SAM riboswitch aptamer (S box leader): a 100-nucleotide sequence from Apibacter adventoris.
RNA sequence: GACUUAUCAAGAAAGGUGGAGGGACUGGCCCUGUGAAACCUUGGCAACCGGCUAACUUCAGCAUGGUGCUAAUUCCAGCCCUUAAGGGGAAAGAUGAGUG
Numbered sequence: 001g002a003c004u005u006a007u008c009a010a011g012a013a014a015g016g017u018g019g020a021g022g023g024a025c026u027g028g029c030c031c032u033g034u035g036a037a038a039c040c041u042u043g044g045c046a047a048c049c050g051g052c053u054a055a056c057u058u059c060a061g062c063a064u065g066g067u068g069c070u071a072a073u074u075c076c077a078g079c080c081c082u083u084a085a086g087g088g089g090a091a092a093g094a095u096g097a098g099u100g
Base pairs, nucleotide, nucleotide: 002099003098004097005096006095007094008093013042014041015040016039017038021031022030023029025078026077027076028075043070044069045068046067048066049065050062052061053060074092079089080088081087082086
The organism belongs to Apibacter, within Bacteria. The match comes from Rfam's covariance-model search (87 bits). The base pairs follow the family's consensus structure, which is taken from published work.